[Rfam]
RNA sequence: UAAAAUACACUCCUUUUGUUUGUAUUUUUGAAGCGUAAAGAAUCACUUGUCUAGGGAGAUUUCUUUACGCUUUUUAUUAUACA
Numbered sequence: 001u002a003a004a005a006u007a008c009a010c011u012c013c014u015u016u017u018g019u020u021u022g023u024a025u026u027u028u029u030g031a032a033g034c035g036u037a038a039a040g041a042a043u044c045a046c047u048u049g050u051c052u053a054g055g056g057a058g059a060u061u062u063c064u065u066u067a068c069g070c071u072u073u074u075u076a077u078u079a080u081a082c083a
Stems, first nucleotide, its partner, number of pairs: 003027007012018001031072012
The family of this 83-nucleotide sequence from Enterococcus sulfureus is "ctRNA". From the family's description: Rolling circle replication plasmids contain a number of mechanisms to maintain a low copy number. It scores 50 bits against the family's covariance model. It is annotated as an antisense RNA.